A member of the RNA family "FMN riboswitch aptamer (RFN element)" from Ruania alkalisoli, 124 nucleotides long. The source organism's lineage runs through Bacteria, Bacillati, Actinomycetes, Ruaniaceae and Ruania.

[Rfam]
RNA sequence: AACGUGCUCCGGGGUCGGUGAAAGUCCGAGCCGGCGGUGACAGUCCGCGACCCGAUCGCAAGAUCGGUUGACCUGGUGGAACUCCAGGACCGACGGUGAAAGUCCGGAUGGGAGGAAGCACGCG
Numbered sequence: 001a002a003c004g005u006g007c008u009c010c011g012g013g014g015u016c017g018g019u020g021a022a023a024g025u026c027c028g029a030g031c032c033g034g035c036g037g038u039g040a041c042a043g044u045c046c047g048c049g050a051c052c053c054g055a056u057c058g059c060a061a062g063a064u065c066g067g068u069u070g071a072c073c074u075g076g077u078g079g080a081a082c083u084c085c086a087g088g089a090c091c092g093a094c095g096g097u098g099a100a101a102g103u104c105c106g107g108a109u110g111g112g113a114g115g116a117a118g119c120a121c122g123c124g
Base pairs, nucleotide, nucleotide: 003122004121005120006119007118008117009115010114016028017027018026030103031102032092033091034048035047036046037045043090044089052067053066072088073087074086075085076084094106095105096104